[Rfam]
RNA sequence: AAUGUGAAAAGAGGUUGCAACCAACAAGAGUAAUCAGCGGAGUCGGGUCACGACAUAGAAACUGAUGAAAGGGGCGGUUGCCGAAGCUGGACGAUUGACCAUCGCUUUGGCUGGGAUGUUGAUGAACAAUCAGCAAACUGUCGUGAUGAAAAAUUCAUCGCGGGGCGCUUACGACAUU
Numbered sequence: 001a002a003u004g005u006g007a008a009a010a011g012a013g014g015u016u017g018c019a020a021c022c023a024a025c026a027a028g029a030g031u032a033a034u035c036a037g038c039g040g041a042g043u044c045g046g047g048u049c050a051c052g053a054c055a056u057a058g059a060a061a062c063u064g065a066u067g068a069a070a071g072g073g074g075c076g077g078u079u080g081c082c083g084a085a086g087c088u089g090g091a092c093g094a095u096u097g098a099c100c101a102u103c104g105c106u107u108u109g110g111c112u113g114g115g116a117u118g119u120u121g122a123u124g125a126a127c128a129a130u131c132a133g134c135a136a137a138c139u140g141u142c143g144u145g146a147u148g149a150a151a152a153a154u155u156c157a158u159c160g161c162g163g164g165g166c167g168c169u170u171a172c173g174a175c176a177u178u
Base pairs, nucleotide, nucleotide: 009170010169011168017081018080019079020078021077022076025073033066034065035064036063037062085112086111087110088109089108090107091106092104093103094102095101113139114138117135118134119133120132121131122130123129141163142162143161144160145159146158147157
Dot-bracket structure: ........(((.....((((((..(.......(((((........................)))))......)..))))))...(((((((((((.....)))).)))))))((..(((((((.....)))))))..)).(((((((.........)))))))....)))........
Shown here is a 178-nucleotide sequence from Furfurilactobacillus rossiae, a member of the family "Lysine riboswitch aptamer". A search with the family's covariance model found it, with a score of 83 bits. Its family is annotated with lysine biosynthetic process in the Gene Ontology. NCBI's taxonomy places the organism under Bacteria, Bacillota, Lactobacillales, Lactobacillaceae, Furfurilactobacillus rossiae.